[Rfam]
RNA: salivarius-1 RNA
RNA sequence: GCCUUGUAUCUGCAUGAUUUGAGACAGUCUUACGCUUUUGAGGACGUAGCAAGGCUU
Number, nucleotide and partner (000 for none) at each position: 001g055002c054003c053004u052005u051006g050007u049008a000009u000010c027011u026012g025013c023014a000015u000016g000017a000018u000019u000020u000021g000022a039023g013024a000025c012026a011027g010028u000029c042030u000031u048032a047033c046034g045035c000036u044037u043038u000039u022040g000041a000042g029043g037044a036045c034046g033047u032048a031049g007050c006051a005052a004053g003054g002055c001056u000057u000